[Rfam]
RNA sequence: GAUCUUUGACAUAUUGAAAAUAGCGAUGGACAAGACAACAUAGUAAUUAACCCAUCGCUGGCAGAGCUUGAGCAAAAAGAGCCAAGUGCAUAGGCAAGCCGUCAUCUUAACGGAGCUUGUCCACUGCGGGGAGCGAAACCUCCUGCCAGCAC
Number, nucleotide and partner (000 for none) at each position: 001g000002a000003u000004c000005u000006u000007u000008g000009a000010c000011a000012u000013a000014u000015u000016g000017a000018a000019a000020a000021u000022a000023g000024c000025g000026a000027u000028g000029g000030a000031c000032a000033a000034g000035a000036c000037a000038a000039c000040a000041u000042a000043g000044u000045a000046a000047u000048u000049a000050a000051c000052c000053c000054a000055u000056c000057g150058c149059u148060g147061g146062c145063a144064g143065a087066g000067c086068u085069u084070g083071a000072g000073c000074a000075a000076a000077a000078a000079g000080a000081g000082c000083c070084a069085a068086g067087u065088g000089c000090a000091u000092a000093g000094g000095c119096a118097a117098g116099c115100c000101g000102u000103c000104a000105u000106c000107u000108u000109a000110a000111c000112g000113g000114a000115g099116c098117u097118u096119g095120u000121c000122c000123a000124c000125u000126g000127c000128g142129g141130g140131g139132a000133g000134c000135g000136a000137a000138a000139c131140c130141u129142c128143c064144u063145g062146c061147c060148a059149g058150c057151a000152c000
DUF2693 RNA: a 152-nucleotide RNA sequence. The base pairs follow the family's consensus structure, which is taken from published work. It is annotated as a small RNA. The sequence is in the family's curated seed alignment.